The family of this 92-nucleotide sequence from Dechloromonas aromatica is "Selenocysteine transfer RNA". It is one of the family's seed sequences.
RNA sequence: GGAAGAGAUCGUUCCCCGGUGGGACGGCCGGUCUUCAAAACCGGCAGGGCCUGUCAAACAGGCUUGGGUAGGUUCGACUCCUGCUCUCUUCC
Numbered sequence: 001g002g003a004a005g006a007g008a009u010c011g012u013u014c015c016c017c018g019g020u021g022g023g024a025c026g027g028c029c030g031g032u033c034u035u036c037a038a039a040a041c042c043g044g045c046a047g048g049g050c051c052u053g054u055c056a057a058a059c060a061g062g063c064u065u066g067g068g069u070a071g072g073u074u075c076g077a078c079u080c081c082u083g084c085u086c087u088c089u090u091c092c
Stems, first nucleotide, its partner, number of pairs: 001092007010026003014023003027045006047065005069083004

The organism belongs to Dechloromonas aromatica (nom. nud.), within Bacteria.